[Rfam]
RNA sequence: GGCGUAAAGGGUCCGCAGGCGGUCCUGUGUGUCGGAUGUGAAAGCUCACGGCUCAACCGUGGAAUUGCAUUCGAAACUACAGGACUAGAGUACAGGAGGGGAGUAGGGAAUUCAUGGUGUAGCGGUGAAAUGCGUAGAUAUCAUGAAGAACACCGGUGGCGAAGGCGCUACUCUGGACUGAUACUGACGCUCAUGGACGAAAGCUGGGGGAGCGAAGAGGAUUAGAUACCCUCGUAGUCCCAGCCGUAAACGGUGUGCACUUGAUGUUGGAGGUUUACCCCCUUCAGUGUCGGAGCUAACGUGUUAAGUGCACCGCCUGGGAAGUACGGCCGCAAGGUUAAAACUCAAAGGAAU
Numbered sequence: 001g002g003c004g005u006a007a008a009g010g011g012u013c014c015g016c017a018g019g020c021g022g023u024c025c026u027g028u029g030u031g032u033c034g035g036a037u038g039u040g041a042a043a044g045c046u047c048a049c050g051g052c053u054c055a056a057c058c059g060u061g062g063a064a065u066u067g068c069a070u071u072c073g074a075a076a077c078u079a080c081a082g083g084a085c086u087a088g089a090g091u092a093c094a095g096g097a098g099g100g101g102a103g104u105a106g107g108g109a110a111u112u113c114a115u116g117g118u119g120u121a122g123c124g125g126u127g128a129a130a131u132g133c134g135u136a137g138a139u140a141u142c143a144u145g146a147a148g149a150a151c152a153c154c155g156g157u158g159g160c161g162a163a164g165g166c167g168c169u170a171c172u173c174u175g176g177a178c179u180g181a182u183a184c185u186g187a188c189g190c191u192c193a194u195g196g197a198c199g200a201a202a203g204c205u206g207g208g209g210g211a212g213c214g215a216a217g218a219g220g221a222u223u224a225g226a227u228a229c230c231c232u233c234g235u236a237g238u239c240c241c242a243g244c245c246g247u248a249a250a251c252g253g254u255g256u257g258c259a260c261u262u263g264a265u266g267u268u269g270g271a272g273g274u275u276u277a278c279c280c281c282c283u284u285c286a287g288u289g290u291c292g293g294a295g296c297u298a299a300c301g302u303g304u305u306a307a308g309u310g311c312a313c314c315g316c317c318u319g320g321g322a323a324g325u326a327c328g329g330c331c332g333c334a335a336g337g338u339u340a341a342a343a344c345u346c347a348a349a350g351g352a353a354u
Base pairs, nucleotide, nucleotide: 001317002316003315009314011198012197013196014195018191019190020189022085023084024083025082026081027080028079031077032074033073034072035071036070037069038068039067040066046062047061048060049059050058051057089185090184091183093180094179095178100174101173102172103171104170105169106168107151111147112146113145114144115143116142117141118140122133123132124131159166160165203244204243205242206241207240208239212238213237217233218232219231220230255313256312257311258310259309260308263291264290265289266288267287268286269285270284271283272282273281295302296301319346320345321344328339329338330337331336

This 354-nucleotide part of an RNA from Tichowtungia aerotolerans belongs to the Rfam family "Bacterial small subunit ribosomal RNA". NCBI's taxonomy places the organism under Bacteria, Tichowtungiia, Tichowtungiales, Tichowtungiaceae, Tichowtungia. The match comes from Rfam's covariance-model search (1509 bits). The family's consensus secondary structure is taken from published work.